[Rfam]
Source information: mir-87 microRNA precursor family: a 78-nucleotide RNA sequence from Panagrellus redivivus. On this family, see Stark et al., Genome Res 2007: "Systematic discovery and characterization of fly microRNAs using 12 Drosophila genomes". The organism belongs to Panagrellus, within Eukaryota. Gene Ontology terms of the family: RISC complex and miRNA-mediated post-transcriptional gene silencing. It scores 64 bits against the family's covariance model. The family's consensus secondary structure was predicted with RNAalifold.
RNA sequence: CGCUUGCGGCCUGGGACUUGGACUCAACCUGCGUAGGCUCGAAGUUCGAGGUGAGCAAAGUUUCAGGUGUGCAAGCGU
Numbered sequence: 001c002g003c004u005u006g007c008g009g010c011c012u013g014g015g016a017c018u019u020g021g022a023c024u025c026a027a028c029c030u031g032c033g034u035a036g037g038c039u040c041g042a043a044g045u046u047c048g049a050g051g052u053g054a055g056c057a058a059a060g061u062u063u064c065a066g067g068u069g070u071g072c073a074a075g076c077g078u
Stems, first nucleotide, its partner, number of pairs: 002076006009068006016061004023055004028051003